[Rfam]
RNA sequence: CAUACGAGGUUACGUCAUACGAAGAAUUGGUAUGUUAAGUUUUACCAGUUCAUCGUCUGACGUUUAACUUCCUAUG
Number, nucleotide and partner (000 for none) at each position: 001c076002a075003u074004a073005c000006g071007a070008g069009g068010u067011u000012a063013c062014g061015u060016c059017a058018u000019a056020c055021g054022a053023a000024g051025a050026a049027u048028u047029g046030g045031u044032a043033u000034g000035u000036u000037a000038a000039g000040u000041u000042u000043u032044a031045c030046c029047a028048g027049u026050u025051c024052a000053u022054c021055g020056u019057c000058u017059g016060a015061c014062g013063u012064u000065u000066a000067a010068c009069u008070u007071c006072c000073u004074a003075u002076g001
RNA: mir-6301 microRNA precursor family
Organism: Heliconius melpomene